Shown here is an 87-nucleotide sequence from Papaver somniferum, a member of the family "Small nucleolar RNA Z43". It scores 56 bits against the family's covariance model. Rfam classes the family as a C/D-box small nucleolar RNA. A reference for the family is Chen et al. (2003), "The high diversity of snoRNAs in plants: identification and comparative study of 120 snoRNA genes from Oryza sativa", Nucleic Acids Res.
RNA sequence: AGACAGUGAUGAUUUCUUUGGUCUCGUUCGUCGUAAUGUAUGGAUGUAAUCUGUACUUGCCGAUCAUUCUGAUAUAAUUCUGAGUCU
Dot-bracket structure: ((((.......................................(.(.......)...).........................))))